[Rfam]
A member of the RNA family "CRISPR RNA direct repeat element" from Synechococcus sp. JA-2-3B'a(2-13), 37 nucleotides long. Pairs were carried over by alignment from the consensus structure, which was predicted with WAR. Rfam links the family to the GO term defense response.
RNA sequence: AGUUCUCCCUUCGGGGGGAUCCCUAGAAAUUGGAAAC
Numbered sequence: 001a002g003u004u005c006u007c008c009c010u011u012c013g014g015g016g017g018g019a020u021c022c023c024u025a026g027a028a029a030u031u032g033g034a035a036a037c
Stems, first nucleotide, its partner, number of pairs: 004018005